The family of this 89-nucleotide RNA sequence from Solimonas aquatica is "Glycine riboswitch aptamer".
[Rfam]
RNA sequence: CCAUGCAGCGCGCGAGAGACCUCUUCACUGAGGCGCUGAAGGCGCAAAUCCGCUCCGAAUCGCUCAAGCAAAAGAAGCGCGCUGCCGAA
Dot-bracket structure: .....((((((((......((((......)))).(((((..(((................))))).))).......)))))))).....